[Rfam]
RNA sequence: CUUCAGCAUCCAGAGCGGUCCCGCCUCGCGGCGGUGGCCCGACAACCUGGAGUCGGACCUCCAAGGUGUCCAAACGAUGCGGCUCGGGGAGAACUACCUCCACGGGCAAUCCAAGCGUCCGAA
Number, nucleotide and partner (000 for none) at each position: 001c000002u000003u000004c000005a000006g080007c079008a078009u077010c076011c000012a000013g000014a000015g040016c000017g039018g038019u037020c036021c000022c000023g000024c000025c000026u000027c000028g000029c000030g000031g000032c000033g000034g000035u000036g020037g019038c018039c017040c015041g070042a069043c068044a000045a000046c066047c065048u064049g062050g061051a060052g000053u000054c000055g000056g116057a000058c000059c000060u051061c050062c049063a000064a048065g047066g046067u000068g043069u042070c041071c000072a000073a000074a000075c000076g010077a009078u008079g007080c006081g000082g107083c106084u105085c104086g000087g000088g000089g000090a000091g000092a000093a000094c000095u000096a000097c000098c000099u000100c000101c000102a000103c000104g085105g084106g083107c082108a000109a000110u000111c000112c000113a000114a000115g000116c056117g000118u000119c000120c000121g000122a000123a000

Description:
Rfam assigns this 123-nucleotide RNA from Pyxidicoccus fallax to the family "SAM-I/IV (S-adenosyl methionine) riboswitch aptamer". Its Rfam clan is "SAM clan". The match comes from Rfam's covariance-model search (46 bits). The organism belongs to Pyxidicoccus, within Bacteria. The base pairs follow the family's consensus structure, which is taken from published work.